[Rfam]
Nucleotides: 081
Stems, first nucleotide, its partner, number of pairs: 031059004038051002041048001
Number, partner (000 for none) and nucleotide at each position: 001000g002000a003000u004000c005000g006000a007000u008000g009000a010000u011000g012000a013000a014000a015000a016000u017000a018000g019000c020000c021000c022000a023000g024000a025000u026000u027000u028000g029000a030000u031059u032058a033057u034056c035000a036000g037000a038051a039050g040000c041048c042000c043000u044000u045000c046000u047000g048041g049000u050039c051038u052000a053000c054000c055000u056034g057033a058032u059031g060000c061000a062000u063000g064000a065000u066000c067000u068000c069000c070000a071000u072000a073000g074000u075000u076000c077000u078000g079000a080000g081000a

Source information: The family of this 81-nucleotide sequence from Nyctereutes procyonoides is "Small nucleolar RNA U2-19". The source organism's lineage runs through Eukaryota, Amniota, Mammalia, Laurasiatheria and Nyctereutes. Rfam classes the family as a C/D-box small nucleolar RNA. For this family Rfam cites "Guide RNAs with 5' Caps and Novel Box C/D snoRNA-like Domains for Modification of snRNAs in Metazoa" (Tycowski et al., Curr Biol, 2004).